[Rfam]
Background:
The record is a 138-nucleotide RNA from Diploscapter pachys, which matches "U4 spliceosomal RNA" in Rfam. Rfam links the family to the GO terms spliceosomal tri-snRNP complex assembly and U4 snRNP. Rfam's curators write: U4 small nuclear RNA (U4 snRNA) is a component of the major U2-dependent spliceosome.
RNA sequence: AUCCUUGCGCAAAGGUUGUACCGUGUCCUAUGAAGCCCUGCUGAGGAGCGGUUAUUGCUGGUUGAAAACUUUCACCAAUUUCCCUCGUUGAGUCCUGAAACACGGAUUCCUCGAAAUGUUUGCAAACCUCGAAGGAGG
Dot-bracket structure: ...................(((((.(((.....(((...)))..))))))))................................(((..((((((((...)).))))))..)))............((((....))))
The base pairs follow the family's consensus structure, which is taken from published work.